[Rfam]
RNA sequence: AAUUUUAAAUUUUCUGGAGCAUAAUUGACCUAAAGAAUAUUUCCAUGGUUAUUAUGCCUGAAUUAUAUAAUUCACAAGGUUUUGUUUGAAAAAACAUAGCCUCCACAAUUUGGGAAGGAAAAUAGGCAAAGAUAU
Numbered sequence: 001a002a003u004u005u006u007a008a009a010u011u012u013u014c015u016g017g018a019g020c021a022u023a024a025u026u027g028a029c030c031u032a033a034a035g036a037a038u039a040u041u042u043c044c045a046u047g048g049u050u051a052u053u054a055u056g057c058c059u060g061a062a063u064u065a066u067a068u069a070a071u072u073c074a075c076a077a078g079g080u081u082u083u084g085u086u087u088g089a090a091a092a093a094a095c096a097u098a099g100c101c102u103c104c105a106c107a108a109u110u111u112g113g114g115a116a117g118g119a120a121a122a123u124a125g126g127c128a129a130a131g132a133u134a135u
Stems, first nucleotide, its partner, number of pairs: 003129002006126001011121005019057007028049003035043003059074005077102005083096005103113002

The family of this 135-nucleotide RNA sequence from Clostridium chauvoei is "Molybdenum/Tungsten riboswitch aptamer (Moco RNA motif)". For this family Rfam cites "in molybdenum cofactor and tungsten cofactor metabolism" (Regulski et al., Mol Microbiol, 2008). It scores 69 bits against the family's covariance model.